[Rfam]
RNA sequence: AGCUGGUCCAAUGGUGUUGGGUUAUCAGAACUUGUUAACAUUAGUGUCACUAAAGUUGAUAUACAACCCCCUACUGCUAAAGUUAACUGGCUUUUA
Number, nucleotide and partner (000 for none) at each position: 001a092002g091003c090004u089005g088006g087007u086008c000009c000010a084011a083012u000013g000014g000015u079016g075017u000018u073019g072020g071021g070022u000023u000024a000025u000026c000027a000028g000029a000030a000031c000032u000033u061034g060035u059036u000037a057038a056039c000040a000041u000042u000043a000044g000045u000046g000047u000048c000049a000050c000051u000052a000053a000054a000055g000056u038057u037058g000059a035060u034061a033062u000063a000064c000065a000066a000067c000068c000069c000070c021071c020072u019073a018074c000075u016076g000077c000078u000079a015080a000081a000082g000083u011084u010085a000086a007087c006088u005089g004090g003091c002092u001093u000094u000095u000096a000

Background:
Y RNA: a 96-nucleotide RNA sequence from Pan troglodytes. The family's RNA type in Rfam is non-coding RNA gene. The organism belongs to Pan, within Eukaryota. The base pairs follow the family's consensus structure, which is taken from published work.